small nucleolar RNA snoR143: a 182-nucleotide sequence from Papaver nudicaule. Pairs were carried over by alignment from the consensus structure, which was predicted with RNAalifold. It is annotated as an H/ACA-box small nucleolar RNA. For this family Rfam cites "Mining small RNA sequencing data: a new approach to identify small nucleolar RNAs in Arabidopsis" (Chen and Wu, Nucleic Acids Res, 2009). The source organism's lineage runs through Eukaryota, Spermatophyta, Ranunculales, Papaveraceae and Papaver.
RNA sequence: UUGCAUUUAUUGGGUAUUGAGUGUGAAGUACUUAUCCUUCCUCUUAUGUAUACCAAUGAUGCACACAUUGAAAGCUAGUUGAUUUAUCAGUUGGUAGCGGCCAGACAACCGUAGGGAUGUGGUAUCCACAGAUAACGGGUUUAAUUUAGUCCCGAUUUGUCUACUAACUCCAUCUCACAUGG
Numbered sequence: 001u002u003g004c005a006u007u008u009a010u011u012g013g014g015u016a017u018u019g020a021g022u023g024u025g026a027a028g029u030a031c032u033u034a035u036c037c038u039u040c041c042u043c044u045u046a047u048g049u050a051u052a053c054c055a056a057u058g059a060u061g062c063a064c065a066c067a068u069u070g071a072a073a074g075c076u077a078g079u080u081g082a083u084u085u086a087u088c089a090g091u092u093g094g095u096a097g098c099g100g101c102c103a104g105a106c107a108a109c110c111g112u113a114g115g116g117a118u119g120u121g122g123u124a125u126c127c128a129c130a131g132a133u134a135a136c137g138g139g140u141u142u143a144a145u146u147u148a149g150u151c152c153c154g155a156u157u158u159g160u161c162u163a164c165u166a167a168c169u170c171c172a173u174c175u176c177a178c179a180u181g182g
Stems, first nucleotide, its partner, number of pairs: 002063005013054005018046004025040004114176006122170001124169001134156001136154004
Dot-bracket structure: .(((((......(((((((((...((((........))))..))))...)))))....)))))..................................................((((((..(.(.........(.((((...........)))).)............))))))))......